Xanthomonas sRNA sX9: a 75-nucleotide RNA sequence from Xanthomonas albilineans.
The family has 16 seed sequences and 309 matches in Rfam 15.1.
The sequence is in the family's curated seed alignment.
By type it is a small RNA.
Taxonomically the source falls in Xanthomonas (Bacteria, Pseudomonadota, Gammaproteobacteria, Lysobacteraceae).
RNA sequence: AUGUACCACUCGUACACACCGGUUCCUGCGUGCUGCGCGGUACGCCUGAGAGUCGCUCGCUAUGUUUUGUUAUCC
Numbered sequence: 001a002u003g004u005a006c007c008a009c010u011c012g013u014a015c016a017c018a019c020c021g022g023u024u025c026c027u028g029c030g031u032g033c034u035g036c037g038c039g040g041u042a043c044g045c046c047u048g049a050g051a052g053u054c055g056c057u058c059g060c061u062a063u064g065u066u067u068u069g070u071u072a073u074c075c
Stems, first nucleotide, its partner, number of pairs: 002016005020035004025030001047072003051068002
Dot-bracket structure: .(((((.....)))))...((((.(....).))))...........(((.((..............)).)))...